Shown here is a 93-nucleotide RNA from Rhynchospora breviuscula, a member of the family "Small nucleolar RNA R64/Z200 family".

RNA sequence: CUAUCGCAGUGAUGAAUUAUGGUAAACUUCGCAUGUCAGACUUCGGAGAUACUACGGUAUCAAUGAGAGUAUAUCCAUACUUCUGAGCCAAAU
Numbered sequence: 001c002u003a004u005c006g007c008a009g010u011g012a013u014g015a016a017u018u019a020u021g022g023u024a025a026a027c028u029u030c031g032c033a034u035g036u037c038a039g040a041c042u043u044c045g046g047a048g049a050u051a052c053u054a055c056g057g058u059a060u061c062a063a064u065g066a067g068a069g070u071a072u073a074u075c076c077a078u079a080c081u082u083c084u085g086a087g088c089c090a091a092a093u
Stems, first nucleotide, its partner, number of pairs: 002092001004090001006088002048061004

NCBI's taxonomy places the organism under Eukaryota, Streptophytina, Embryophyta, Spermatophyta, Rhynchospora.
The literature on the family includes a 2002 paper in Curr Biol by Marker et al., "Experimental RNomics: identification of 140 candidates for small non-messenger RNAs in the plant Arabidopsis thaliana".
Rfam 15.1 lists 748 matches to the family in 228 species.